[Rfam]
RNA sequence: GUCCUACUUUUGUCGAGAAAGUGUUUUGAAUUGUGUCAGGGCUGAGAAGAAGCAGCACUAAAAAAUUGUUUUUUUGGACAACAGUAGGCAUCC
Numbered sequence: 001g002u003c004c005u006a007c008u009u010u011u012g013u014c015g016a017g018a019a020a021g022u023g024u025u026u027u028g029a030a031u032u033g034u035g036u037c038a039g040g041g042c043u044g045a046g047a048a049g050a051a052g053c054a055g056c057a058c059u060a061a062a063a064a065a066u067u068g069u070u071u072u073u074u075u076g077g078a079c080a081a082c083a084g085u086a087g088g089c090a091u092c093c
Stems, first nucleotide, its partner, number of pairs: 004087005010081005015074001017073006024064004033058004042049002